[Rfam]
RNA sequence: CAGGUUGGCUAGACGGUCGCUGCUGGCAUUUGCCAGGAGAGGAAAGUCCGGGCUUCAAAGGGCAGAGCGGUCGGUAACGCCGACCAGUCGCGAGACUAGGGAAAGUGCAACAGAAAGCAAACCGCCAACAUUCGGCAUGUCCGGGUGCGGUAAGGGUGAAACGGUGAGGUAAGAGCUCACCAGCGCUCAAGGUGACUUGGGUGGCUUGGUAAACCCCGCUCGAAGCAAGAUCAAACAGAGAGGAGUGGCUGUCGUAAGACUGGCCACACGACUUGGCCCGGGUCGUCGGACUCUCGGGUAGAUUGCUGGAGGCCGUGAGCAAUUGCGGUCCUAGAUAAAUGGCCGUCAACACUCACGACUUUGCAACAGCAAGGUGUGUGGGUGAGACAGAACCCGGCUUAUCGGCCAACCUGUGCC
Number, nucleotide and partner (000 for none) at each position: 001c413002a412003g411004g410005u409006u408007g407008g406009c405010u404011a402012g347013a346014c345015g344016g343017u342018c341019g000020c039021u038022g000023c036024u035025g034026g033027c032028a000029u000030u000031u000032g027033c026034c025035a024036g023037g000038a021039g020040a000041g000042g000043a000044a400045a399046g398047u000048c397049c396050g395051g394052g393053c225054u224055u223056c222057a000058a000059a000060g279061g278062g277063c276064a000065g221066a220067g219068c218069g217070g084071u083072c082073g081074g080075u000076a000077a000078c000079g000080c074081c073082g072083a071084c070085c099086a097087g096088u095089c094090g000091c000092g000093a000094g089095a088096c087097u086098a000099g085100g216101g215102a000103a000104a000105g214106u213107g210108c209109a000110a000111c000112a000113g000114a000115a000116a000117g000118c000119a000120a000121a000122c155123c154124g151125c150126c149127a000128a000129c147130a146131u145132u144133c143134g142135g141136c000137a000138u000139g000140u000141c135142c134143g133144g132145g131146u130147g129148c000149g126150g125151u124152a000153a000154g123155g122156g000157u000158g000159a000160a000161a000162c000163g181164g180165u179166g178167a177168g176169g000170u000171a000172a000173g000174a000175g000176c168177u167178c166179a165180c164181c163182a000183g205184c203185g202186c201187u200188c199189a198190a197191g196192g000193u000194g000195a000196c191197u190198u189199g188200g187201g186202u185203g184204g000205c183206u000207u000208g000209g108210u107211a000212a000213a106214c105215c101216c100217c069218g068219c067220u066221c065222g056223a055224a054225g053226c000227a000228a000229g304230a303231u302232c301233a000234a000235a000236c000237a000238g295239a294240g293241a292242g291243g000244a000245g000246u000247g000248g000249c000250u000251g000252u000253c000254g000255u000256a000257a000258g000259a000260c000261u000262g000263g000264c000265c000266a000267c000268a000269c000270g284271a283272c282273u281274u280275g000276g063277c062278c061279c060280g274281g273282g272283u271284c270285g000286u000287c000288g000289g000290a000291c242292u241293c240294u239295c238296g000297g000298g000299u000300a000301g232302a231303u230304u229305g000306c000307u000308g000309g000310a000311g330312g329313c328314c327315g326316u325317g324318a323319g000320c000321a000322a000323u318324u317325g316326c315327g314328g313329u312330c311331c000332u000333a000334g000335a000336u000337a000338a000339a000340u000341g018342g017343c016344c015345g014346u013347c012348a000349a000350c000351a000352c000353u000354c000355a000356c000357g000358a000359c000360u000361u000362u000363g000364c000365a000366a000367c000368a000369g000370c000371a000372a000373g000374g000375u000376g000377u000378g000379u000380g000381g000382g000383u000384g000385a000386g000387a000388c000389a000390g000391a000392a000393c052394c051395c050396g049397g048398c046399u045400u044401a000402u011403c000404g010405g009406c008407c007408a006409a005410c004411c003412u002413g001414u000415g000416c000417c000
A member of the RNA family "Bacterial RNase P class A" from Aureliella helgolandensis, 417 nucleotides long. Ribonuclease P (RNase P) is a ubiquitous endoribonuclease, found in archaea, bacteria and eukarya as well as chloroplasts and mitochondria. It is annotated as a ribozyme. Lineage of the source: Bacteria > Pseudomonadati > Planctomycetia > Pirellulaceae > Aureliella. Rfam links the family to the GO terms tRNA processing, dimeric ribonuclease P complex and ribonuclease P activity.